[Rfam]
The record is a 504-nucleotide part of an RNA from Melampsora laricis-populina, which matches "Eukaryotic large subunit ribosomal RNA" in Rfam. Pairs were carried over by alignment from the consensus structure, which is taken from published work.
RNA sequence: UAGAAUAAUGUAGAUAAGGGAAGUCGGCAAAAUAGAUCCGUAACUUAGGGAAAAGGAUUGGCUCAUAGGGCAGGGUUUGUUGGGCCUUUGAUGGAUCUUUUGGAAUCUGACUGGGACUACUUCUGGGCAACCGGAGGCGGACUCGGACGGAAUCUGAUCGUAACGUCUUUGGCAGGAUUGCUUUACCGCUUUCCGUCUGGCAAACAUUUAACUGUUAACUAUGAACUGGUACGGACAAGGGGAAUCUGACUGUCUAAUUAAAACAUAGCAUUGUGAUGGCCAGAAAGUGGUGUUGACACAAUGUGAUUUCUGCCCAGUGCUCUGAAUGUCAAAGUGAAGAAAUUCAAAUAAGCGCGGGUAAACGGCGGGAGUAACUAUGACUCUCUUAAGGUAGCCAAAUGCCUCGUCAUCUAAUUAGUGACGCGCAUGAAUGGAUUAACGAGAUUCCUUCUGUCCCUAUCUACUAUCUAGCGAAACCACAGUCAAGGGAACGGGCUUGACAAA
Numbered sequence: 001u002a003g004a005a006u007a008a009u010g011u012a013g014a015u016a017a018g019g020g021a022a023g024u025c026g027g028c029a030a031a032a033u034a035g036a037u038c039c040g041u042a043a044c045u046u047a048g049g050g051a052a053a054a055g056g057a058u059u060g061g062c063u064c065a066u067a068g069g070g071c072a073g074g075g076u077u078u079g080u081u082g083g084g085c086c087u088u089u090g091a092u093g094g095a096u097c098u099u100u101u102g103g104a105a106u107c108u109g110a111c112u113g114g115g116a117c118u119a120c121u122u123c124u125g126g127g128c129a130a131c132c133g134g135a136g137g138c139g140g141a142c143u144c145g146g147a148c149g150g151a152a153u154c155u156g157a158u159c160g161u162a163a164c165g166u167c168u169u170u171g172g173c174a175g176g177a178u179u180g181c182u183u184u185a186c187c188g189c190u191u192u193c194c195g196u197c198u199g200g201c202a203a204a205c206a207u208u209u210a211a212c213u214g215u216u217a218a219c220u221a222u223g224a225a226c227u228g229g230u231a232c233g234g235a236c237a238a239g240g241g242g243a244a245u246c247u248g249a250c251u252g253u254c255u256a257a258u259u260a261a262a263a264c265a266u267a268g269c270a271u272u273g274u275g276a277u278g279g280c281c282a283g284a285a286a287g288u289g290g291u292g293u294u295g296a297c298a299c300a301a302u303g304u305g306a307u308u309u310c311u312g313c314c315c316a317g318u319g320c321u322c323u324g325a326a327u328g329u330c331a332a333a334g335u336g337a338a339g340a341a342a343u344u345c346a347a348a349u350a351a352g353c354g355c356g357g358g359u360a361a362a363c364g365g366c367g368g369g370a371g372u373a374a375c376u377a378u379g380a381c382u383c384u385c386u387u388a389a390g391g392u393a394g395c396c397a398a399a400u401g402c403c404u405c406g407u408c409a410u411c412u413a414a415u416u417a418g419u420g421a422c423g424c425g426c427a428u429g430a431a432u433g434g435a436u437u438a439a440c441g442a443g444a445u446u447c448c449u450u451c452u453g454u455c456c457c458u459a460u461c462u463a464c465u466a467u468c469u470a471g472c473g474a475a476a477c478c479a480c481a482g483u484c485a486a487g488g489g490a491a492c493g494g495g496c497u498u499g500a501c502a503a504a
Base pairs, nucleotide, nucleotide: 001470002469003468004467010464011463012462013461014460015459016458018456019455020454035059036058037057038056039055044049060227061226063224064223065222066221067220068219069216070215071214072213073212075205076204077203078202079201080200081199082198083197084173085172086171090167091166097160100157101156102155103154104153106151107150108149109148111146112145113144114143115142117140118139120137121136122135123134124133125132126131228232240449241448242447243446244445245444246443247441248440251265252264253263268304269303270302271301272300273299274298275297279291280290281289282288308435309434310433312366313365314364317363318362319359320358321357322356324355327354328353329352335346336345337344338343367385368384369383370382371381372380386390406422407421408420409419410418483500484499485498486497487496